[Rfam]
RNA sequence: GUCGUUUCUCGGCCUUUUGGCUAAGAUCAAGUGCAGUAUUUGUUCUAAUCAAUUAUGGUAGCACCCACCCUAACUGGUAGAAUAGAGAAACACUUGGUCGAGUCCAGGGGCAGAGUUGCCUGCAUUGAGGCCUGAGCCAUUUUUGCCCCCCCCCUUGCCUUGCAUACCCUGGGGUGCAGUAACUCACA
Numbered sequence: 001g002u003c004g005u006u007u008c009u010c011g012g013c014c015u016u017u018u019g020g021c022u023a024a025g026a027u028c029a030a031g032u033g034c035a036g037u038a039u040u041u042g043u044u045c046u047a048a049u050c051a052a053u054u055a056u057g058g059u060a061g062c063a064c065c066c067a068c069c070c071u072a073a074c075u076g077g078u079a080g081a082a083u084a085g086a087g088a089a090a091c092a093c094u095u096g097g098u099c100g101a102g103u104c105c106a107g108g109g110g111c112a113g114a115g116u117u118g119c120c121u122g123c124a125u126u127g128a129g130g131c132c133u134g135a136g137c138c139a140u141u142u143u144u145g146c147c148c149c150c151c152c153c154c155u156u157g158c159c160u161u162g163c164a165u166a167c168c169c170u171g172g173g174g175u176g177c178a179g180u181a182a183c184u185c186a187c188a
Stems, first nucleotide, its partner, number of pairs: 007026003011022004047054002055071001057069003061065001102137002105134004115126001117124002140182002143179003147174004